RNA sequence: AAGUAAGAGCUUACGGUGGAUACCUUGGCAUUUAGAAGCGAUGAAGGGCGUGACUACCAACGAAAUGCUCCGGGGAGCUGGAAGUAAGCUUAAAUCCGGAGGUUCCCGAAUGAGGAAACUCUAUUAUACUACCUACUGAAUUCAUAAGUAGGCAAGAGCAAACCUGGCGAACUGAAACAUCUUAGUAGCCAGAGGAAAAGAAAGCAAAAGCGAUUCUCUUAGUAGCGGCGAGCGAAAUGGGAACAGCCUAAACCACUUUAAUAAGUUUUAGUGGGGUUGUGGGACAGAUGUACAAGUAAACAAAAAGCUAGGUGAAACAAAUGAAAUUUUGUAUCAAAGAAGGUGAUAAUCCUGUAACCGAAAGUAGAUUGUAGCUUAUCUGUAUCCCGAGUAGCAUGGAACACGUGAAAUUCCGUGUGAAUCUGCGAGGACCACCUCGUAAGGCUAAAUAUUCCUAAAUGACCGAUAGUGAACAGUACCGUGAGGGAAAGGUGAAAAGAACCCCGGAAGGGGAGUGAAAUAGAACAUGAAACCGUAAGCUUACAAG
Numbered sequence: 001a002a003g004u005a006a007g008a009g010c011u012u013a014c015g016g017u018g019g020a021u022a023c024c025u026u027g028g029c030a031u032u033u034a035g036a037a038g039c040g041a042u043g044a045a046g047g048g049c050g051u052g053a054c055u056a057c058c059a060a061c062g063a064a065a066u067g068c069u070c071c072g073g074g075g076a077g078c079u080g081g082a083a084g085u086a087a088g089c090u091u092a093a094a095u096c097c098g099g100a101g102g103u104u105c106c107c108g109a110a111u112g113a114g115g116a117a118a119c120u121c122u123a124u125u126a127u128a129c130u131a132c133c134u135a136c137u138g139a140a141u142u143c144a145u146a147a148g149u150a151g152g153c154a155a156g157a158g159c160a161a162a163c164c165u166g167g168c169g170a171a172c173u174g175a176a177a178c179a180u181c182u183u184a185g186u187a188g189c190c191a192g193a194g195g196a197a198a199a200g201a202a203a204g205c206a207a208a209a210g211c212g213a214u215u216c217u218c219u220u221a222g223u224a225g226c227g228g229c230g231a232g233c234g235a236a237a238u239g240g241g242a243a244c245a246g247c248c249u250a251a252a253c254c255a256c257u258u259u260a261a262u263a264a265g266u267u268u269u270a271g272u273g274g275g276g277u278u279g280u281g282g283g284a285c286a287g288a289u290g291u292a293c294a295a296g297u298a299a300a301c302a303a304a305a306a307g308c309u310a311g312g313u314g315a316a317a318c319a320a321a322u323g324a325a326a327u328u329u330u331g332u333a334u335c336a337a338a339g340a341a342g343g344u345g346a347u348a349a350u351c352c353u354g355u356a357a358c359c360g361a362a363a364g365u366a367g368a369u370u371g372u373a374g375c376u377u378a379u380c381u382g383u384a385u386c387c388c389g390a391g392u393a394g395c396a397u398g399g400a401a402c403a404c405g406u407g408a409a410a411u412u413c414c415g416u417g418u419g420a421a422u423c424u425g426c427g428a429g430g431a432c433c434a435c436c437u438c439g440u441a442a443g444g445c446u447a448a449a450u451a452u453u454c455c456u457a458a459a460u461g462a463c464c465g466a467u468a469g470u471g472a473a474c475a476g477u478a479c480c481g482u483g484a485g486g487g488a489a490a491g492g493u494g495a496a497a498a499g500a501a502c503c504c505c506g507g508a509a510g511g512g513g514a515g516u517g518a519a520a521u522a523g524a525a526c527a528u529g530a531a532a533c534c535g536u537a538a539g540c541u542u543a544c545a546a547g
Stems, first nucleotide, its partner, number of pairs: 007542010023492002027464002029461007036453002038159002046107003049062003068101007077089003112121003129156002132152006163194001164192005174181002204211002214449001215242004225233002245446004253274005281388003285382005300372004307365003311359003317332005335339001341353003394418008425440005479486002502513004
This 547-nucleotide part of an RNA belongs to the Rfam family "Bacterial large subunit ribosomal RNA".
For this family Rfam cites "Crystal structure of the ribosome at 5.5 A resolution" (Yusupov et al., Science, 2001).